[Rfam]
RNA sequence: AUCCUUUUGCAGAGGCAAUUUCAUAGUCUAUGAAGUUCUACUGAGACGUGAUUAUUGCUGGUUGAAAACUUAACCCAAUACCCCGCCUGGAUGACUUGAAAUAUAGUCAGCUGUGGCAAUUUUUGUUGGUCUCUCAAGAGA
Numbered sequence: 001a002u003c004c005u006u007u008u009g010c011a012g013a014g015g016c017a018a019u020u021u022c023a024u025a026g027u028c029u030a031u032g033a034a035g036u037u038c039u040a041c042u043g044a045g046a047c048g049u050g051a052u053u054a055u056u057g058c059u060g061g062u063u064g065a066a067a068a069c070u071u072a073a074c075c076c077a078a079u080a081c082c083c084c085g086c087c088u089g090g091a092u093g094a095c096u097u098g099a100a101a102u103a104u105a106g107u108c109a110g111c112u113g114u115g116g117c118a119a120u121u122u123u124u125g126u127u128g129g130u131c132u133c134u135c136a137a138g139a140g141a
Base pairs, nucleotide, nucleotide: 021051022050023049024048026047027046028045034042035041036040085117086116087115088113089112090111092109093108094107095106096105130141131140132139133138
Shown here is a 141-nucleotide sequence from Sparus aurata, a member of the family "U4 spliceosomal RNA". The family has 177 seed sequences and 32,178 matches in Rfam 15.1. The base pairs follow the family's consensus structure, which is taken from published work. A reference for the family is Zhan et al. (2018), "Structures of the human pre-catalytic spliceosome and its precursor spliceosome", Cell Res. NCBI's taxonomy places the organism under Eukaryota, Opisthokonta, Metazoa, Gnathostomata, Sparus.